RNA: SmY spliceosomal RNA
RNA sequence: GUGUACACCCUUUUGUGCGGAGGGCCUUUUGCUGAAGACCCUUUUUUGACAAUUUUUGGCAGGCCCAACGGAAUUGGGCCUU
Number, nucleotide and partner (000 for none) at each position: 001g000002u000003g000004u000005a000006c000007a000008c000009c000010c000011u000012u000013u000014u000015g000016u000017g000018c000019g000020g000021a000022g041023g040024g039025c000026c037027u036028u035029u000030u000031g000032c000033u000034g000035a028036a027037g026038a000039c024040c023041c022042u000043u000044u000045u000046u000047u000048g000049a000050c000051a000052a000053u000054u000055u000056u000057u000058g000059g000060c000061a081062g080063g079064c078065c077066c076067a075068a074069c000070g000071g000072a000073a000074u068075u067076g066077g065078g064079c063080c062081u061082u000